[Rfam]
RNA sequence: CGGCCAGUAUUAAAGUAGGUUUGCUGGGCUAAUCAAUAGGCAGACCGAAAUCCGAGCCUUAUCAUCAUUGGAAGGAGUUAUCGACCCUCCCGCAGUAGCGGGUAAAUAGGUAUCUUGACGCGAUCAGCCGGACGCUUCUUGCAUGGCCCGUGACGGCGACAACAGGCUAAACUACCGUGCGCCACACGGCAGAUGGCCGAGUACCGGGUUUCAUGGCUGGUAUCGCAAAGAAGUACACAACAGCGCCCCUACAAUAACACUUUGCGAGGUACAUUCCGAGAUGACAUCACAA
Numbered sequence: 001c002g003g004c005c006a007g008u009a010u011u012a013a014a015g016u017a018g019g020u021u022u023g024c025u026g027g028g029c030u031a032a033u034c035a036a037u038a039g040g041c042a043g044a045c046c047g048a049a050a051u052c053c054g055a056g057c058c059u060u061a062u063c064a065u066c067a068u069u070g071g072a073a074g075g076a077g078u079u080a081u082c083g084a085c086c087c088u089c090c091c092g093c094a095g096u097a098g099c100g101g102g103u104a105a106a107u108a109g110g111u112a113u114c115u116u117g118a119c120g121c122g123a124u125c126a127g128c129c130g131g132a133c134g135c136u137u138c139u140u141g142c143a144u145g146g147c148c149c150g151u152g153a154c155g156g157c158g159a160c161a162a163c164a165g166g167c168u169a170a171a172c173u174a175c176c177g178u179g180c181g182c183c184a185c186a187c188g189g190c191a192g193a194u195g196g197c198c199g200a201g202u203a204c205c206g207g208g209u210u211u212c213a214u215g216g217c218u219g220g221u222a223u224c225g226c227a228a229a230g231a232a233g234u235a236c237a238c239a240a241c242a243g244c245g246c247c248c249c250u251a252c253a254a255u256a257a258c259a260c261u262u263u264g265c266g267a268g269g270u271a272c273a274u275u276c277c278g279a280g281a282u283g284a285c286a287u288c289a290c291a292a
Stems, first nucleotide, its partner, number of pairs: 019045007089102004110272008119264001120226005125219005134142002145210006230263005

The record is a 292-nucleotide sequence, which matches "RT-2 RNA" in Rfam. It is annotated as a small RNA.